[Rfam]
A member of the RNA family "PhrS" from Pseudomonas cremoricolorata, 209 nucleotides long. The match comes from Rfam's covariance-model search (201 bits). Gene Ontology term of the family: quorum sensing. The base pairs follow the family's consensus structure, which was predicted with CMfinder.
RNA sequence: AUCGGACAACGACAAGCGAAUGGGAGGUCGACAUGUUCUUCGACAACGUAGUUAUCGCAGGCGUGGUAACGGUCGGGUUGAUGGUCACGUUCUUUGUCGGUCUGGGCAUUUUCAUCUGGAAGGAUUCCAGCAAGCGCAAGCCGCGCUGACUCUUCCGGAAUCACGAGCACGCAAGGCAUUUAGGGCGACUUCGGUCGCCCAUUUUUUUG
Numbered sequence: 001a002u003c004g005g006a007c008a009a010c011g012a013c014a015a016g017c018g019a020a021u022g023g024g025a026g027g028u029c030g031a032c033a034u035g036u037u038c039u040u041c042g043a044c045a046a047c048g049u050a051g052u053u054a055u056c057g058c059a060g061g062c063g064u065g066g067u068a069a070c071g072g073u074c075g076g077g078u079u080g081a082u083g084g085u086c087a088c089g090u091u092c093u094u095u096g097u098c099g100g101u102c103u104g105g106g107c108a109u110u111u112u113c114a115u116c117u118g119g120a121a122g123g124a125u126u127c128c129a130g131c132a133a134g135c136g137c138a139a140g141c142c143g144c145g146c147u148g149a150c151u152c153u154u155c156c157g158g159a160a161u162c163a164c165g166a167g168c169a170c171g172c173a174a175g176g177c178a179u180u181u182a183g184g185g186c187g188a189c190u191u192c193g194g195u196c197g198c199c200c201a202u203u204u205u206u207u208u209g
Stems, first nucleotide, its partner, number of pairs: 010099004048058002075086002078083001167177002170175001183200007